ctRNA: a 45-nucleotide sequence from Rhizobium sp. P32RR-XVIII. By type it is an antisense RNA.
RNA sequence: AGAGAGGCUUCCACGGGGUACCGUUCGGGGGCCUUUUUCUUUUGC
Numbered sequence: 001a002g003a004g005a006g007g008c009u010u011c012c013a014c015g016g017g018g019u020a021c022c023g024u025u026c027g028g029g030g031g032c033c034u035u036u037u038u039c040u041u042u043u044g045c
Base pairs, nucleotide, nucleotide: 005034006033007032008031009030010029011028012027015025016024017022
About the family: This family represents a group of ctRNAs (or counter-transcribed RNAs) from p42d and related plasmids. ctRNAs are small, highly structured, antisense sequences which are involved in negative regulation. Members of this family are known to bind to the mRNA of repC causing translational repression. This model contains the predicted stem-loop structure followed by a U-rich tract which is proposed to act as a Rho-independent transcriptional terminator.
NCBI's taxonomy places the organism under Bacteria, Pseudomonadati, Alphaproteobacteria, Hyphomicrobiales, Rhizobium.
The family's consensus secondary structure is taken from published work.